[Rfam]
c-di-GMP-I riboswitch aptamer: an 87-nucleotide RNA sequence from Dendrosporobacter quercicolus. Its family is annotated with cyclic-di-GMP binding in the Gene Ontology. The source organism's lineage runs through Bacteria, Bacillota, Negativicutes, Selenomonadales and Dendrosporobacter. The match comes from Rfam's covariance-model search (70 bits).
RNA sequence: UGAAAUAAUUGGCAAACUUAUGCGAAAGCUAAGGACGCAAAGCCGUGGGUCUAAGGAUAGAAUGUCUAUGACUGCCUGGUUGCAUAA
Number, nucleotide and partner (000 for none) at each position: 001u000002g000003a000004a000005a000006u000007a000008a000009u000010u000011g000012g038013c037014a000015a000016a000017c033018u032019u031020a030021u000022g029023c028024g000025a000026a000027a000028g023029c022030u020031a019032a018033g017034g000035a000036c000037g013038c012039a000040a000041a081042g080043c079044c078045g000046u000047g076048g075049g072050u071051c070052u000053a000054a000055g000056g066057a065058u064059a063060g000061a000062a000063u059064g058065u057066c056067u000068a000069u000070g051071a050072c049073u000074g000075c048076c047077u000078g044079g043080u042081u041082g000083c000084a000085u000086a000087a000